[Rfam]
RNA sequence: GGAAGGCAUCCGUGCCCGGUGGCACGGCCGGGCUUCAAACCCGGUUGGGGGCGUCAGCCGUUCCCAGGUAGGUUCGACUCCUGCUGCCUUCC
Number, nucleotide and partner (000 for none) at each position: 001g092002g091003a090004a089005g088006g087007c086008a085009u000010c000011c026012g025013u024014g023015c022016c021017c000018g000019g000020u000021g016022g015023c014024a013025c012026g011027g045028c044029c043030g042031g041032g040033c000034u000035u000036c000037a000038a000039a000040c032041c031042c030043g029044g028045u027046u000047g065048g064049g063050g062051g061052c000053g000054u000055c000056a000057g000058c000059c000060g000061u051062u050063c049064c048065c047066a000067g000068g000069u083070a082071g081072g080073u000074u000075c000076g000077a000078c000079u000080c072081c071082u070083g069084c000085u008086g007087c006088c005089u004090u003091c002092c001

Shown here is a 92-nucleotide RNA sequence from Bordetella sp. N, a member of the family "Selenocysteine transfer RNA". Clan: tRNA clan. Rfam 15.1 lists 4,211 matches to the family in 3,344 species. It scores 77 bits against the family's covariance model.